[Rfam]
RNA sequence: UAUUACCUGCCGUGUUCGUAAGCUUUUUUAUGCUUUGAACCUUGAAUGUUAAAAGGGAGUUUUAAAUGAGUAAAGCAACGCUAAGCUAGCAAGUACUAGACAGCGAACCUUUAACUGCGAACACCCACCUACCGAUGUAGGUUCAUAAAGCAUUCACUUGCAACGGCACAAGCGGGUAUGAC
Numbered sequence: 001u002a003u004u005a006c007c008u009g010c011c012g013u014g015u016u017c018g019u020a021a022g023c024u025u026u027u028u029u030a031u032g033c034u035u036u037g038a039a040c041c042u043u044g045a046a047u048g049u050u051a052a053a054a055g056g057g058a059g060u061u062u063u064a065a066a067u068g069a070g071u072a073a074a075g076c077a078a079c080g081c082u083a084a085g086c087u088a089g090c091a092a093g094u095a096c097u098a099g100a101c102a103g104c105g106a107a108c109c110u111u112u113a114a115c116u117g118c119g120a121a122c123a124c125c126c127a128c129c130u131a132c133c134g135a136u137g138u139a140g141g142u143u144c145a146u147a148a149a150g151c152a153u154u155c156a157c158u159u160g161c162a163a164c165g166g167c168a169c170a171a172g173c174g175g176g177u178a179u180g181a182c
Base pairs, nucleotide, nucleotide: 004178005177006176007175008174009173010172012169013168014167015166017165018164019163032151033150034149035147036145037144038143039142040141041140055126056125057124059122060121061120062119066116070115071114072112073111074110075109081103082102086099087098088097089096
Shown here is a 182-nucleotide sequence from Shouchella oshimensis, a member of the family "6S / SsrS RNA". Rfam classes the family as a non-coding RNA gene. A search with the family's covariance model found it, with a score of 82 bits.